[Rfam]
RNA sequence: AGUAAGACCAAGACUGGCAUACCAUUUCCUUGUCUGUAGCCAUGUCUAUGGGCUCUUGAGUUGGACACCAGGGUGAGGGCCUGCU
Numbered sequence: 001a002g003u004a005a006g007a008c009c010a011a012g013a014c015u016g017g018c019a020u021a022c023c024a025u026u027u028c029c030u031u032g033u034c035u036g037u038a039g040c041c042a043u044g045u046c047u048a049u050g051g052g053c054u055c056u057u058g059a060g061u062u063g064g065a066c067a068c069c070a071g072g073g074u075g076a077g078g079g080c081c082u083g084c085u
Stems, first nucleotide, its partner, number of pairs: 001085004006080001008078002012074001014072002017069001022064003026060003032053008
RNA: mir-571 microRNA precursor family
Organism: Cebus imitator